[Rfam]
RNA: FMN riboswitch aptamer (RFN element)
RNA sequence: UUGCUCCUCUGGGGAUAGGUGAAAAUCCUUACCGGCGGUAGAGCCCGCGAGCCGUUUUGGCAGAUCCGGUGUGAUUCCGGAGCCGACAGUUACAGUCUGGAUGGGAAGAGGGAAGG
Numbered sequence: 001u002u003g004c005u006c007c008u009c010u011g012g013g014g015a016u017a018g019g020u021g022a023a024a025a026u027c028c029u030u031a032c033c034g035g036c037g038g039u040a041g042a043g044c045c046c047g048c049g050a051g052c053c054g055u056u057u058u059g060g061c062a063g064a065u066c067c068g069g070u071g072u073g074a075u076u077c078c079g080g081a082g083c084c085g086a087c088a089g090u091u092a093c094a095g096u097c098u099g100g101a102u103g104g105g106a107a108g109a110g111g112g113a114a115g116g
Base pairs, nucleotide, nucleotide: 005112006111007110008109009108010107017029018028019027031096032095033085034084035048036047037046038045043083044082051061052060053059065081066080067079068078069077087099088098089097
Dot-bracket structure: ....((((((......(((.......))).[[((((((....[[))))..(((.....)))...(((((.......)))))]])).(((.....]]))).......))))))....